[Rfam]
The family of this 92-nucleotide RNA from Trichechus manatus is "Small nucleolar SNORD12/SNORD106". It scores 91 bits against the family's covariance model. For this family Rfam cites "RNomics: an experimental approach that identifies 201 candidates for novel, small, non-messenger RNAs in mouse" (Huttenhofer et al., EMBO J, 2001). Pairs were carried over by alignment from the consensus structure, which was predicted with RNAalifold. The family has 8 seed sequences and 2,264 matches in Rfam 15.1.
RNA sequence: GCUGUUGCAGCUGAUGACAGAACUUUUUUCCCCAUCAGAUCGGCCAUGUUGAUCUGUUAACUAAUAGCCAGUUUUUUGUCUGAUGCAUCGGC
Numbered sequence: 001g002c003u004g005u006u007g008c009a010g011c012u013g014a015u016g017a018c019a020g021a022a023c024u025u026u027u028u029u030c031c032c033c034a035u036c037a038g039a040u041c042g043g044c045c046a047u048g049u050u051g052a053u054c055u056g057u058u059a060a061c062u063a064a065u066a067g068c069c070a071g072u073u074u075u076u077u078g079u080c081u082g083a084u085g086c087a088u089c090g091g092c
Stems, first nucleotide, its partner, number of pairs: 001092004006087004

Taxonomically the source falls in Trichechus manatus (Eukaryota, Gnathostomata, Tetrapoda, Amniota). Its family is annotated with nucleolus and RNA processing in the Gene Ontology.